About this RNA:
Shown here is a 52-nucleotide sequence from Rhodovulum sp. PH10, a member of the family "ffh sRNA". Lineage of the source: Bacteria > Pseudomonadota > Alphaproteobacteria > Rhodobacterales > Rhodovulum.

[Rfam]
RNA sequence: AAGACCGGAGGUCAACACCCGACAGCGCUGUGCGCCCUCGGGUGCGUUUUGG
Numbered sequence: 001a002a003g004a005c006c007g008g009a010g011g012u013c014a015a016c017a018c019c020c021g022a023c024a025g026c027g028c029u030g031u032g033c034g035c036c037c038u039c040g041g042g043u044g045c046g047u048u049u050u051g052g
Stems, first nucleotide, its partner, number of pairs: 016044007025035004
Dot-bracket structure: ...............(((((((..((((...))))..)))))))........